[Rfam]
RNA sequence: CCUGCUAUGCGACUAGCAGUAGCCUAAGAAGACAUGCGCCACUGGCAACGGUGGGGUGUGAAGCUCUUCUGACAAUGAAGCCCCCGGACGUUUCGGGCAGGCGAGUGCCGCGAGGUACCCGUCUGGUAAUCCUCAGCAGCAGGGGAUUCGGAGC
Numbered sequence: 001c002c003u004g005c006u007a008u009g010c011g012a013c014u015a016g017c018a019g020u021a022g023c024c025u026a027a028g029a030a031g032a033c034a035u036g037c038g039c040c041a042c043u044g045g046c047a048a049c050g051g052u053g054g055g056g057u058g059u060g061a062a063g064c065u066c067u068u069c070u071g072a073c074a075a076u077g078a079a080g081c082c083c084c085c086g087g088a089c090g091u092u093u094c095g096g097g098c099a100g101g102c103g104a105g106u107g108c109c110g111c112g113a114g115g116u117a118c119c120c121g122u123c124u125g126g127u128a129a130u131c132c133u134c135a136g137c138a139g140c141a142g143g144g145g146a147u148u149c150g151g152a153g154c
Base pairs, nucleotide, nucleotide: 002019003018004017005016006015007014028069029068030067031066032065033060034059035058036057037056039054040053041052042051043050044049083097084096085095086094087093098125099124100123101122108115109114129147130146131145132144133143134142
RNA: Group II catalytic intron D1-D4-7
Organism: Paraburkholderia sp. LEh10